[Rfam]
RNA: drz-agam-2-2 ribozyme
Organism: Anopheles stephensi
RNA sequence: UCCGUUUAUCGCUCUGUUAGUGGGGUAGGUUCCGAGACUCCUUUCGGUGUUACACAGGCUCUCCUACCCAACUCCUAUUCCGUCACGUCCUCGUCGGACCGAGCGGUAACUUUCCCCACCACAUAUCCAAGCUUUGGUACACGGACCUGUCCCAACCCCUUUGGCGGAUGGUGGAGAAAGGCUGAACAGGAGGGA
Numbered sequence: 001u002c003c004g005u006u007u008a009u010c011g012c013u014c015u016g017u018u019a020g021u022g023g024g025g026u027a028g029g030u031u032c033c034g035a036g037a038c039u040c041c042u043u044u045c046g047g048u049g050u051u052a053c054a055c056a057g058g059c060u061c062u063c064c065u066a067c068c069c070a071a072c073u074c075c076u077a078u079u080c081c082g083u084c085a086c087g088u089c090c091u092c093g094u095c096g097g098a099c100c101g102a103g104c105g106g107u108a109a110c111u112u113u114c115c116c117c118a119c120c121a122c123a124u125a126u127c128c129a130a131g132c133u134u135u136g137g138u139a140c141a142c143g144g145a146c147c148u149g150u151c152c153c154a155a156c157c158c159c160u161u162u163g164g165c166g167g168a169u170g171g172u173g174g175a176g177a178a179a180g181g182c183u184g185a186a187c188a189g190g191a192g193g194g195a
Base pairs, nucleotide, nucleotide: 011104012103013102014101016099017098023069024068025067026066027065028064029063032058033057073195074194075193076192078191079190081189086096087095089106090105110180111179112178113177114176117173118172119171120170125169126168127167128166133155134154136152137151157164158163